[Rfam]
This 155-nucleotide RNA sequence from Marinithermofilum abyssi belongs to the Rfam family "Ribosomal protein L10 leader".
It is annotated as a cis-regulatory leader.
The organism belongs to Marinithermofilum, within Bacteria.
RNA sequence: CAAUUGAAAAGAGCACUACCGUAGACAGCCGGGGCACCCUGGGUGCUUAAAAAGCCAGCCGAGGUAGAGGAACGAGAAACCUAGGGUUUCUCUGUGCGAGGAUUGCACAGUUCCCGGCCUUCGUCUGUCUGCGCGAAGGCUUUUUUCAUGGGCGG
Numbered sequence: 001c002a003a004u005u006g007a008a009a010a011g012a013g014c015a016c017u018a019c020c021g022u023a024g025a026c027a028g029c030c031g032g033g034g035c036a037c038c039c040u041g042g043g044u045g046c047u048u049a050a051a052a053a054g055c056c057a058g059c060c061g062a063g064g065u066a067g068a069g070g071a072a073c074g075a076g077a078a079a080c081c082u083a084g085g086g087u088u089u090c091u092c093u094g095u096g097c098g099a100g101g102a103u104u105g106c107a108c109a110g111u112u113c114c115c116g117g118c119c120u121u122c123g124u125c126u127g128u129c130u131g132c133g134c135g136a137a138g139g140c141u142u143u144u145u146u147c148a149u150g151g152g153c154g155g
Base pairs, nucleotide, nucleotide: 028059029058031056032055034046035045036044117140118139119138120137121136122135123134124133126131